Rfam assigns this 102-nucleotide sequence from Paraeggerthella hongkongensis to the family "azaaromatic riboswitch aptamer (yjdF RNA)". Lineage of the source: Bacteria > Bacillati > Coriobacteriia > Eggerthellaceae > Paraeggerthella.

[Rfam]
RNA sequence: CCCAUCAGAGAUGAAAACACAGUCCCCGUCGGGUAGUCGUGGGCGUGCGCAAUGCGUAUCAGUAACCUGCCUCCUUGGUUGUCCCUUCUCUGCAUGGUUCGU
Numbered sequence: 001c002c003c004a005u006c007a008g009a010g011a012u013g014a015a016a017a018c019a020c021a022g023u024c025c026c027c028g029u030c031g032g033g034u035a036g037u038c039g040u041g042g043g044c045g046u047g048c049g050c051a052a053u054g055c056g057u058a059u060c061a062g063u064a065a066c067c068u069g070c071c072u073c074c075u076u077g078g079u080u081g082u083c084c085c086u087u088c089u090c091u092g093c094a095u096g097g098u099u100c101g102u
Stems, first nucleotide, its partner, number of pairs: 006092006022044002025042002027039002045059006069079003